[Rfam]
RNA: MIR8024 microRNA precursor family
Organism: Solanum lycopersicum
RNA sequence: UUGGAAGAUUUGAAUACUUUAACUUGUAUACUUGGAGAGUUUGAAGACUUCAACUUGCAGGCUUGAAGAAUUUGAAGGCUUCAAUU
Numbered sequence: 001u002u003g004g005a006a007g008a009u010u011u012g013a014a015u016a017c018u019u020u021a022a023c024u025u026g027u028a029u030a031c032u033u034g035g036a037g038a039g040u041u042u043g044a045a046g047a048c049u050u051c052a053a054c055u056u057g058c059a060g061g062c063u064u065g066a067a068g069a070a071u072u073u074g075a076a077g078g079c080u081u082c083a084a085u086u
Stems, first nucleotide, its partner, number of pairs: 001084005009076006017068005025059004032053006